A member of the RNA family "Small nucleolar RNA ZL2" from Mus musculus, 75 nucleotides long. On this family, see Kishore et al., Genome Biol 2013: "Insights into snoRNA biogenesis and processing from PAR-CLIP of snoRNA core proteins and small RNA sequencing". The family's consensus secondary structure was predicted with RNAfold. Gene Ontology terms of the family: nucleolus and RNA processing. The family has 6 seed sequences and 126 matches in Rfam 15.1. It is annotated as a C/D-box small nucleolar RNA.

RNA sequence: GGCCUCAAGUGAUGGAGACAUACCCUGGGAGGCCCAUGACCGGACUGGGAUGUAUUCGUACUGUCUGAUGGGGCU
Numbered sequence: 001g002g003c004c005u006c007a008a009g010u011g012a013u014g015g016a017g018a019c020a021u022a023c024c025c026u027g028g029g030a031g032g033c034c035c036a037u038g039a040c041c042g043g044a045c046u047g048g049g050a051u052g053u054a055u056u057c058g059u060a061c062u063g064u065c066u067g068a069u070g071g072g073g074c075u
Base pairs, nucleotide, nucleotide: 001075002074003073004072005071006070007069011065012064013063014062015061019058020055021054022053023052024049025048027046028045032041